RNA sequence: CAGCCAACGCCGAGGCAGCCUGAAAGAUGAAGUGUAUGACGGAAUGACCAGUUUUGUCUGUUCGAUCAUCCACGCAGCAAUGGCGUAAGACGUAUUGAUCCCUCAGACAGUUAGCGGGCUGCGAGUUGCAGUCCUUACCGGUACAUAUACUGUACGAAUUUUAGAUGGCAGAAAAAUAACGCAACGGGAAACAUCCGUGCCAAUCUCUACCUUCUGAAAGAUGACGAGUAUAAAUGGAAUCUUCUCUGGAGAGUUAUCCCAGGCUGUUCCCUAAUAAUUGCGCUGUGUUUCCGUUUGAAACACAGGCUACCGACACUCUGCGCCUCUUAAGCGAGCGACAACCGUGAGGUUGGCGACGUGAAUAGUCACGAGGCCAUCGGUUUACCCGGAAAGGCAACACUCUGCUCGCAGCUUAGUCGUCAA
Numbered sequence: 001c002a003g004c005c006a007a008c009g010c011c012g013a014g015g016c017a018g019c020c021u022g023a024a025a026g027a028u029g030a031a032g033u034g035u036a037u038g039a040c041g042g043a044a045u046g047a048c049c050a051g052u053u054u055u056g057u058c059u060g061u062u063c064g065a066u067c068a069u070c071c072a073c074g075c076a077g078c079a080a081u082g083g084c085g086u087a088a089g090a091c092g093u094a095u096u097g098a099u100c101c102c103u104c105a106g107a108c109a110g111u112u113a114g115c116g117g118g119c120u121g122c123g124a125g126u127u128g129c130a131g132u133c134c135u136u137a138c139c140g141g142u143a144c145a146u147a148u149a150c151u152g153u154a155c156g157a158a159u160u161u162u163a164g165a166u167g168g169c170a171g172a173a174a175a176a177u178a179a180c181g182c183a184a185c186g187g188g189a190a191a192c193a194u195c196c197g198u199g200c201c202a203a204u205c206u207c208u209a210c211c212u213u214c215u216g217a218a219a220g221a222u223g224a225c226g227a228g229u230a231u232a233a234a235u236g237g238a239a240u241c242u243u244c245u246c247u248g249g250a251g252a253g254u255u256a257u258c259c260c261a262g263g264c265u266g267u268u269c270c271c272u273a274a275u276a277a278u279u280g281c282g283c284u285g286u287g288u289u290u291c292c293g294u295u296u297g298a299a300a301c302a303c304a305g306g307c308u309a310c311c312g313a314c315a316c317u318c319u320g321c322g323c324c325u326c327u328u329a330a331g332c333g334a335g336c337g338a339c340a341a342c343c344g345u346g347a348g349g350u351u352g353g354c355g356a357c358g359u360g361a362a363u364a365g366u367c368a369c370g371a372g373g374c375c376a377u378c379g380g381u382u383u384a385c386c387c388g389g390a391a392a393g394g395c396a397a398c399a400c401u402c403u404g405c406u407c408g409c410a411g412c413u414u415a416g417u418c419g420u421c422a423a
Stems, first nucleotide, its partner, number of pairs: 003040001005038002007035002016029002019026001054110007065099004072093003077084002116414011135392002138389004152269001154267002280307002283305004288300004309381005322374005336355002339352005
RNase E 5' UTR element: a 423-nucleotide RNA sequence from Kluyvera genomosp. 3.
The family's consensus secondary structure is taken from published work.
Gene Ontology term of the family: regulation of gene expression.
A search with the family's covariance model found it, with a score of 195 bits.
The literature on the family includes a 2000 paper in Genes Dev by Diwa et al., "An evolutionarily conserved RNA stem-loop functions as a sensor that directs feedback regulation of RNase E gene expression".
This family represents a conserved element found in the 5' UTR of RNase E mRNA. RNase E is a key regulatory enzyme in the pathway of mRNA degradation in E. coli that is able to auto-regulate the degradation of its own mRNA in response to changes in RNase E activity. This rne 5' UTR element acts as a sensor of cellular RNase E concentration enabling tight regulation of RNase E concentration and synthesis.